[Rfam]
RNA sequence: GCCCAAAGUCGCACGUGCCUGUGGGCGUCCCCCGGUCCUUAAAUGCGAGGAUUACCGGGACGGUACCUGGGAUCAAACCCAGUCGGUCUUGCAGCGAGCAAGAUCGAGGACGCCUUGAAGCAACGACGGUGCGGGCCUUU
Numbered sequence: 001g002c003c004c005a006a007a008g009u010c011g012c013a014c015g016u017g018c019c020u021g022u023g024g025g026c027g028u029c030c031c032c033c034g035g036u037c038c039u040u041a042a043a044u045g046c047g048a049g050g051a052u053u054a055c056c057g058g059g060a061c062g063g064u065a066c067c068u069g070g071g072a073u074c075a076a077a078c079c080c081a082g083u084c085g086g087u088c089u090u091g092c093a094g095c096g097a098g099c100a101a102g103a104u105c106g107a108g109g110a111c112g113c114c115u116u117g118a119a120g121c122a123a124c125g126a127c128g129g130u131g132c133g134g135g136c137c138u139u140u
Stems, first nucleotide, its partner, number of pairs: 001136004008127004016122003023115008031059005037050004067082005083107004089101004
This 140-nucleotide RNA from Consotaella salsifontis belongs to the Rfam family "Alphaproteobacterial sRNA ar45". On this family, see del Val et al., RNA Biol 2012: "A survey of sRNA families in alpha-proteobacteria".